[Rfam]
RNA sequence: GGUUACGAGCGUCAGCAACAAGCCCUGGCUGGCUGACCAGCAACCCUCCGACGCGGCGGGGUGCUCCAGGUGACGACCCGACAGGACGGCGCAGUCCUGUAAGCGCGCAAG
Numbered sequence: 001g002g003u004u005a006c007g008a009g010c011g012u013c014a015g016c017a018a019c020a021a022g023c024c025c026u027g028g029c030u031g032g033c034u035g036a037c038c039a040g041c042a043a044c045c046c047u048c049c050g051a052c053g054c055g056g057c058g059g060g061g062u063g064c065u066c067c068a069g070g071u072g073a074c075g076a077c078c079c080g081a082c083a084g085g086a087c088g089g090c091g092c093a094g095u096c097c098u099g100u101a102a103g104c105g106c107g108c109a110a111g
Stems, first nucleotide, its partner, number of pairs: 001078004009038001011037006021030002039065003044061003048056002081100007
The record is a 111-nucleotide sequence from Streptomyces sp. 846.5, which matches "SAM (S-adenosyl methionine) riboswitch aptamer" in Rfam.
A search with the family's covariance model found it, with a score of 96 bits.
The family is grouped with related families in Rfam's "SAM clan".
Rfam 15.1 lists 2,360 matches to the family in 1,305 species.